[Rfam]
RNA sequence: AAGUAGUCAAUGAGUCUGCUUAUCUGAAUGUAUUUCUGCAAAAAUUUAGAGAAAACUGGCAAUAGUAAAGCCAUAUAAUGAGCCUUGAAGACAUUGAGGUCACUAAGGUCCCUGAAAAUGGCUAUAAGG
Numbered sequence: 001a002a003g004u005a006g007u008c009a010a011u012g013a014g015u016c017u018g019c020u021u022a023u024c025u026g027a028a029u030g031u032a033u034u035u036c037u038g039c040a041a042a043a044a045u046u047u048a049g050a051g052a053a054a055a056c057u058g059g060c061a062a063u064a065g066u067a068a069a070g071c072c073a074u075a076u077a078a079u080g081a082g083c084c085u086u087g088a089a090g091a092c093a094u095u096g097a098g099g100u101c102a103c104u105a106a107g108g109u110c111c112c113u114g115a116a117a118a119u120g121g122c123u124a125u126a127a128g129g
Stems, first nucleotide, its partner, number of pairs: 003060001004058003015042001017040003070122004082109006090101003
RNA: Small nucleolar RNA SNORA33
Organism: Myotis myotis